[Rfam]
RNA: Small nucleolar RNA U61
Organism: Actinidia chinensis
RNA sequence: GGGCUGUGAUAAUCAAAUUAUGUAUGCUAGAGACGGAUCUCUUACGAGUUCUGUGACGGCAACACAAUCCUCUAAGAAUUUCUGAGCCU
Numbered sequence: 001g002g003g004c005u006g007u008g009a010u011a012a013u014c015a016a017a018u019u020a021u022g023u024a025u026g027c028u029a030g031a032g033a034c035g036g037a038u039c040u041c042u043u044a045c046g047a048g049u050u051c052u053g054u055g056a057c058g059g060c061a062a063c064a065c066a067a068u069c070c071u072c073u074a075a076g077a078a079u080u081u082c083u084g085a086g087c088c089u
Stems, first nucleotide, its partner, number of pairs: 001089004